[Rfam]
Nucleotides: 585
Base pairs, nucleotide, nucleotide: 001476002475003473004472005471007470008469009468010467011466012465013464015460016459019424020423021422022421023420024317026315027314028313029312030311031310032309033308034306035305040055041054042053043052064301065300066299067298068297069296070295077124078123079121080120081119082118083117087104088103089102090101091100092099106115107114108113127290128289130288131287132286133285136284137283138279139278140277141275143273144272148187149186150185151184152183153182154163155162156161166179167178168177169176193267194266195265196264198235199234200233201232202231203230204229208224209223212222213221214220238258239257241255242254243253244252245251321376322375323374324373325372327370333364334363335362338357339356343352344351345350383414388409389408390407391406393404394403430452431451432450433449434448435447436446479584481581484577485576489571490570491569492568494566495565496564499561500560501559503557504556507553508552509551510550515546517544518543519542520541523539524538525537528535529534
Number, partner (000 for none) and nucleotide at each position: 001476u002475g003473a004472c005471g006000g007470g008469g009468a010467c011466c012465c013464g014000c015460a016459c017000a018000a019424g020423c021422g022421g023420u024317g025000g026315a027314g028313c029312a030311u031310g032309u033308g034306g035305u036000u037000u038000a039000a040055u041054u042053c043052g044000a045000a046000g047000c048000a049000a050000c051000g052043c053042g054041a055040a056000g057000a058000a059000c060000c061000u062000u063000a064301c065300c066299a067298g068297g069296c070295c071000u072000u073000g074000a075000c076000a077124u078123c079121c080120g081119c082118a083117u084000g085000a086000c087104g088103c089102a090101u091100g092099g093000g094000u095000a096000a097000u098000g099092c100091c101090a102089u103088g104087u105000u106115u107114c108113c109000u110000u111000c112000g113108g114107g115106a116000c117083a118082u119081g120080c121079g122000a123078g124077a125000c126000a127290g128289g129000u130288g131287g132286u133285g134000c135000a136284u137283g138279g139278u140277u141275g142000u143273c144272g145000u146000c147000a148187g149186c150185u151184c152183g153182u154163g155162u156161c157000g158000u159000g160000a161156g162155a163154u164000g165000u166179u167178g168177g169176g170000u171000u172000a173000a174000g175000u176169c177168c178167c179166g180000c181000a182153a183152c184151g185150a186149g187148c188000g189000c190000a191000a192000c193267c194266c195265c196264u197000g198235u199234u200233u201232c202231c203230u204229g205000u206000a207000g208224c209223c210000a211000g212222c213221a214220u215000u216000u217000c218000g219000g220214a221213u222212g223209g224208g225000g226000a227000c228000u229204c230203a231202g232201g233200a234199g235198a236000g237000a238258c239257u240000g241255c242254c243253c244252g245251g246000g247000a248000g249000a250000a251245c252244c253243g254242g255241g256000a257239g258238g259000a260000a261000g262000g263000c264196g265195g266194g267193g268000a269000u270000g271000a272144c273143g274000u275141c276000a277140a278139a279138u280000c281000a282000u283137c284136a285133u286132g287131c288130c289128c290127c291000u292000u293000a294000u295070g296069g297068u298067c299066u300065g301064g302000g303000c304000u305035a306034c307000a308033c309032a310031c311030g312029u313028g314027c315026u316000a317024c318000a319000a320000u321376g322375g323374c324373g325372u326000a327370a328000a329000c330000a331000a332000a333364g334363g335362g336000a337000a338357g339356c340000g341000a342000g343352c344351c345350u346000g347000c348000g349000a350345g351344g352343g353000u354000a355000a356339g357338c358000g359000a360000a361000u362335c363334c364333c365000a366000a367000a368000a369000a370327u371000a372325a373324c374323g375322u376321c377000c378000c379000a380000g381000u382000u383414c384000g385000g386000a387000u388409u389408g390407c391406a392000g393404u394403c395000u396000g397000c398000a399000a400000c401000u402000c403394g404393a405000g406391u407390g408389c409388a410000u411000g412000a413000a414383g415000c416000u417000g418000g419000a420023a421022u422021c423020g424019c425000u426000a427000g428000u429000a430452a431451u432450c433449g434448c435447g436446g437000a438000u439000c440000a441000g442000a443000a444000u445000g446436c447435c448434g449433c450432g451431g452430u453000g454000a455000a456000u457000a458000c459016g460015u461000u462000c463000c464013c465012g466011g467010g468009u469008c470007u471005u472004g473003u474000a475002c476001a477000c478000a479584c480000c481581g482000c483000c484577c485576g486000u487000c488000a489571c490570a491569c492568c493000a494566u495565g496564g497000g498000a499561g500560u501559c502000g503557g504556g505000a506000a507553u508552g509551c510550c511000c512000g513000a514000a515546g516000c517544c518543g519542g520541u521000g522000g523539c524538c525537c526000a527000a528535u529534c530000g531000a532000a533000a534529g535528a536000a537525g538524g539523g540000a541520g542519c543518c544517g545000u546515c547000g548000a549000a550510g551509g552508c553507a554000g555000g556504c557503c558000g559501g560500a561499u562000g563000a564496c565495u566494g567000g568492g569491g570490u571489g572000a573000a574000g575000u576485c577484g578000u579000a580000a581481c582000a583000a584479g585000g